[Rfam]
RNA: Small nucleolar RNA SNORD91 family
RNA sequence: GUGUCUCGUCAAUGAUGUUUUCAAUACAAAUGUCUGAACUUAUGAAUUUCAGUGAUUCUUACUUUGUGACUGAGACGAGACCCCAA
Number, nucleotide and partner (000 for none) at each position: 001g000002u000003g000004u080005c079006u078007c077008g076009u075010c074011a000012a000013u000014g000015a000016u000017g000018u000019u000020u000021u000022c000023a000024a000025u000026a000027c000028a000029a000030a000031u000032g000033u000034c000035u000036g000037a000038a000039c000040u000041u000042a000043u000044g000045a000046a000047u000048u000049u000050c000051a000052g000053u000054g000055a000056u000057u000058c000059u000060u000061a000062c000063u000064u000065u000066g000067u000068g000069a000070c000071u000072g000073a000074g010075a009076c008077g007078a006079g005080a004081c000082c000083c000084c000085a000086a000